A member of the RNA family "U5 spliceosomal RNA" from Ceratodon purpureus, 113 nucleotides long.
Pairs were carried over by alignment from the consensus structure, which is taken from published work.
Its family is annotated with U5 snRNP and spliceosomal tri-snRNP complex assembly in the Gene Ontology.
[Rfam]
RNA sequence: AGCAGAGUGCUCUGCACAGAGCGAACUAUUCUUUCGCCUUUUACUAAAGAAUACCGUGCGCUGGGCACAUACAUCUGCAUAUCCCAUUUUUUGGAUCGCCCCUCGCGGGGCCC
Numbered sequence: 001a002g003c004a005g006a007g008u009g010c011u012c013u014g015c016a017c018a019g020a021g022c023g024a025a026c027u028a029u030u031c032u033u034u035c036g037c038c039u040u041u042u043a044c045u046a047a048a049g050a051a052u053a054c055c056g057u058g059c060g061c062u063g064g065g066c067a068c069a070u071a072c073a074u075c076u077g078c079a080u081a082u083c084c085c086a087u088u089u090u091u092u093g094g095a096u097c098g099c100c101c102c103u104c105g106c107g108g109g110g111c112c113c
Stems, first nucleotide, its partner, number of pairs: 003077004008067005014061002017058002027053008098111005

Notes:
U5 RNA is a component of both types of known spliceosome. The family's RNA type in Rfam is spliceosomal small nuclear RNA. The source organism's lineage runs through Eukaryota, Viridiplantae, Bryophytina, Bryopsida and Ceratodon.